[Rfam]
RNA: Alphaproteobacterial ar14
RNA sequence: CACUAUCCGAAGGGGCUUUCUCCUCCCAGCCCCCAAGGAGCCCGACGAGGCACCCUCCUCCCAGCCUCGUAGGAAAAAAAGACGCCCACCGGUACCUCCUCCCACCGGUGGGCGUUUUUU
Numbered sequence: 001c002a003c004u005a006u007c008c009g010a011a012g013g014g015g016c017u018u019u020c021u022c023c024u025c026c027c028a029g030c031c032c033c034c035a036a037g038g039a040g041c042c043c044g045a046c047g048a049g050g051c052a053c054c055c056u057c058c059u060c061c062c063a064g065c066c067u068c069g070u071a072g073g074a075a076a077a078a079a080a081g082a083c084g085c086c087c088a089c090c091g092g093u094a095c096c097u098c099c100u101c102c103c104a105c106c107g108g109u110g111g112g113c114g115u116u117u118u119u120u
Base pairs, nucleotide, nucleotide: 006039007038008037012033013032014031015030016029042073043072045070046069047068048067049066050065051064082115083114084113085112086111087110088109089108090107091106092105